[Rfam]
RNA sequence: CCGAACCAAGGCAAAUCCGUACGAAAGUCGGAGACGCAAAGCCACGGGUCUACUUCAUCCCCUGCGGGAUGUUAGGACAGCCGGGCCGCUCAAG
Numbered sequence: 001c002c003g004a005a006c007c008a009a010g011g012c013a014a015a016u017c018c019g020u021a022c023g024a025a026a027g028u029c030g031g032a033g034a035c036g037c038a039a040a041g042c043c044a045c046g047g048g049u050c051u052a053c054u055u056c057a058u059c060c061c062c063u064g065c066g067g068g069a070u071g072u073u074a075g076g077a078c079a080g081c082c083g084g085g086c087c088g089c090u091c092a093a094g
Base pairs, nucleotide, nucleotide: 001094003091004090011037012036016032017031018030019029021028022027035080041086042085043084045083046082047081048078049077050076

The record is a 94-nucleotide RNA from Paenibacillus stellifer, which matches "c-di-GMP-I-GGC riboswitch aptamer" in Rfam. Rfam links the family to the GO term cyclic-di-GMP binding. The match comes from Rfam's covariance-model search (61 bits).